[Rfam]
RNA sequence: CCACCAAGCUAGGGGUCCUGACCGCAAAACAUUCGCGCUCGGGUGAGAAAUACCCUUGAACCUGAUCUGGAUAAUGCCAGCGAAGGGAAGCUCCGGAACCCACCC
Numbered sequence: 001c002c003a004c005c006a007a008g009c010u011a012g013g014g015g016u017c018c019u020g021a022c023c024g025c026a027a028a029a030c031a032u033u034c035g036c037g038c039u040c041g042g043g044u045g046a047g048a049a050a051u052a053c054c055c056u057u058g059a060a061c062c063u064g065a066u067c068u069g070g071a072u073a074a075u076g077c078c079a080g081c082g083a084a085g086g087g088a089a090g091c092u093c094c095g096g097a098a099c100c101c102a103c104c105c
Stems, first nucleotide, its partner, number of pairs: 007092004011056004016050001017043005061086003067080004
This 105-nucleotide sequence from Oxalobacteraceae bacterium IMCC9480 belongs to the Rfam family "TPP riboswitch aptamer (THI element)". About the family: Vitamin B(1) in its active form thiamin pyrophosphate (TPP) is an essential coenzyme that is synthesised by coupling of pyrimidine and thiazole moieties in bacteria. The previously detected thiamin-regulatory element, thi box was extended, resulting in a new, highly conserved RNA secondary structure, the THI element, which is widely distributed in eubacteria and also occurs in some archaea. Analysis of operon structures identified a large number of new candidate thiamin-regulated genes, mostly transporters, in various prokaryotic organisms. The base pairs follow the family's consensus structure, which is taken from published work. It scores 59 bits against the family's covariance model.